[Rfam]
Shown here is a 275-nucleotide sequence from Haemaphysalis longicornis, a member of the family "RNase MRP". The organism belongs to Haemaphysalis, within Eukaryota. A search with the family's covariance model found it, with a score of 101 bits.

RNA sequence: AAGUUUCGCCUAGGCUUGAUCUCGGAGCUACGAACGAUCCCACGUGGAUCUCGAGCGCGCUCUGGGGAAAGUCCCCAGACCUUGGGCAGAGAGUGCCGGGGCGCGAGGCCCUUCUCCCCGGCCAUAGGCGCACACGAACGCGAGGACGCGUGACGCGGAGCGGUGCGUGGGCCGGGGCCACCGUCGCAGCAAAGGUAUGCAAGCACGCCCGGCGAUGCCUCCCCCCGUGGGAGUCCGCUGCGGCCGACCACAAUGGGGCUCACUCAGGAGGAACU
Number, nucleotide and partner (000 for none) at each position: 001a000002a275003g274004u273005u272006u271007c270008g000009c268010c267011u266012a000013g000014g204015c203016u202017u201018g200019a000020u000021c000022u065023c064024g063025g062026a061027g060028c059029u000030a000031c000032g000033a000034a000035c000036g050037a049038u048039c047040c046041c000042a000043c000044g000045u000046g040047g039048a038049u037050c036051u000052c000053g000054a000055g000056c000057g000058c000059g028060c027061u026062c025063u024064g023065g022066g000067g000068a000069a000070a260071g259072u000073c258074c257075c256076c255077a000078g000079a000080c000081c000082u000083u000084g000085g097086g096087c095088a094089g000090a000091g000092a000093g000094u088095g087096c086097c085098g112099g110100g109101g000102c107103g000104c000105g000106a000107g102108g000109c100110c099111c000112u098113u000114c177115u176116c175117c000118c000119c000120g173121g172122c171123c170124a000125u000126a000127g000128g168129c167130g166131c165132a000133c000134a000135c000136g000137a000138a000139c162140g161141c160142g000143a000144g000145g000146a000147c000148g156149c155150g154151u000152g000153a000154c150155g149156c148157g000158g000159a000160g141161c140162g139163g000164u000165g131166c130167g129168u128169g000170g123171g122172c121173c120174g000175g116176g115177g114178c000179c000180a000181c000182c000183g000184u000185c000186g000187c000188a000189g000190c000191a000192a000193a000194g000195g000196u000197a000198u000199g000200c018201a017202a016203g015204c014205a000206c000207g244208c243209c242210c000211g000212g000213c000214g000215a000216u000217g000218c000219c000220u000221c000222c000223c000224c000225c000226c000227g000228u000229g000230g000231g000232a000233g000234u000235c000236c000237g000238c000239u000240g000241c000242g209243g208244c207245c000246g000247a000248c000249c000250a000251c000252a000253a000254u000255g076256g075257g074258g073259c071260u070261c000262a000263c000264u000265c000266a011267g010268g009269a000270g007271g006272a005273a004274c003275u002